[Rfam]
RNA: Small nucleolar RNA SNORA1
Organism: Dipodomys ordii
RNA sequence: GGCCUCAUUCCAGAUAAGAAUGGGCACUGUUGAUCAGGGUCCAAAACUGGUCACUGAGGCUAAAUUCAGACACAGGUUGUGCUUCCAUCACAGUAUAUGCAUUGCAGUGGUGACAAUGAGACCUGUAACAUAA
Numbered sequence: 001g002g003c004c005u006c007a008u009u010c011c012a013g014a015u016a017a018g019a020a021u022g023g024g025c026a027c028u029g030u031u032g033a034u035c036a037g038g039g040u041c042c043a044a045a046a047c048u049g050g051u052c053a054c055u056g057a058g059g060c061u062a063a064a065u066u067c068a069g070a071c072a073c074a075g076g077u078u079g080u081g082c083u084u085c086c087a088u089c090a091c092a093g094u095a096u097a098u099g100c101a102u103u104g105c106a107g108u109g110g111u112g113a114c115a116a117u118g119a120g121a122c123c124u125g126u127a128a129c130a131u132a133a
Base pairs, nucleotide, nucleotide: 002060003059004058006056007055021043022042023041024040025039027037072126073125074124075123076122086112087111088110089109090108091107